[Rfam]
RNA: tRNA
Organism: Thermanaerothrix daxensis
RNA sequence: GCCCCAGUAGCUCAAAAGGAUAGAGCAAGGCACUCCUAACGCCUUGGUUGGGGGUUCGAGUCCCUCCUGGGGCA
Numbered sequence: 001g002c003c004c005c006a007g008u009a010g011c012u013c014a015a016a017a018g019g020a021u022a023g024a025g026c027a028a029g030g031c032a033c034u035c036c037u038a039a040c041g042c043c044u045u046g047g048u049u050g051g052g053g054g055u056u057c058g059a060g061u062c063c064c065u066c067c068u069g070g071g072g073c074a
Stems, first nucleotide, its partner, number of pairs: 001073007010026004028044004050066005